RNA sequence: ACUGCAUCAUAAGCGCCAGCACUUGGCACCAGCGUUCGGCAUGCUGGACAAGUGGACGAGGUGGAGGUGUUCGAAAUUGUUCGGCGGGGACCUCCCGGUGCGCCAACGGCACCGCAAUAGCAUGACGGAAAGAGGCAAGGCGACUUGCCGGACAACGCCUGCUUACGUUGACA
Numbered sequence: 001a002c003u004g005c006a007u008c009a010u011a012a013g014c015g016c017c018a019g020c021a022c023u024u025g026g027c028a029c030c031a032g033c034g035u036u037c038g039g040c041a042u043g044c045u046g047g048a049c050a051a052g053u054g055g056a057c058g059a060g061g062u063g064g065a066g067g068u069g070u071u072c073g074a075a076a077u078u079g080u081u082c083g084g085c086g087g088g089g090a091c092c093u094c095c096c097g098g099u100g101c102g103c104c105a106a107c108g109g110c111a112c113c114g115c116a117a118u119a120g121c122a123u124g125a126c127g128g129a130a131a132g133a134g135g136c137a138a139g140g141c142g143a144c145u146u147g148c149c150g151g152a153c154a155a156c157g158c159c160u161g162c163u164u165a166c167g168u169u170g171a172c173a
Base pairs, nucleotide, nucleotide: 020054021053022052023051024050025049027047063095064094065093066092067091071084072083073082074081096114097113098112099111100110101109119163120162121161122160124158134149135148136147137146138145139144